[Rfam]
RNA sequence: AGUCCUUAACCAUGUAAGUCGCUUUGGAUAAAAGCAUCUGCUAAAUGACUAAAU
Numbered sequence: 001a002g003u004c005c006u007u008a009a010c011c012a013u014g015u016a017a018g019u020c021g022c023u024u025u026g027g028a029u030a031a032a033a034g035c036a037u038c039u040g041c042u043a044a045a046u047g048a049c050u051a052a053a054u
Stems, first nucleotide, its partner, number of pairs: 013043001014041003021035005

Rfam assigns this 54-nucleotide sequence from Sinocyclocheilus rhinocerous to the family "UnaL2 LINE 3' element". NCBI's taxonomy places the organism under Eukaryota, Metazoa, Vertebrata, Osteoglossocephalai, Sinocyclocheilus. The literature on the family includes a 2004 paper in RNA by Baba et al., "Solution structure of an RNA stem-loop derived from the 3' conserved region of eel LINE UnaL2". Rfam 15.1 lists 493,311 matches to the family in 99 species. Rfam's curators write: The eel long interspersed element (LINE) UnaL2 and its partner short interspersed element (SINE) share a conserved 3' tail containing a stem-loop that is critical for their retrotransposition. The base pairs follow the family's consensus structure, which is taken from published work.